[Rfam]
RNA: c-di-GMP-I riboswitch aptamer
RNA sequence: CAUCGACAAUGGCAAACUCAUUGAAAGGUGAGGACGCAAAGCCACGGGUCUAUGGUUUCUUGUAAACUAUGACAGCCGGGUUACCGAA
Numbered sequence: 001c002a003u004c005g006a007c008a009a010u011g012g013c014a015a016a017c018u019c020a021u022u023g024a025a026a027g028g029u030g031a032g033g034a035c036g037c038a039a040a041g042c043c044a045c046g047g048g049u050c051u052a053u054g055g056u057u058u059c060u061u062g063u064a065a066a067c068u069a070u071g072a073c074a075g076c077c078g079g080g081u082u083a084c085c086g087a088a
Base pairs, nucleotide, nucleotide: 012037013036017032018031019030020029021028022027040082041081042080043079045078046077047076048073049072050071055067056066057065058064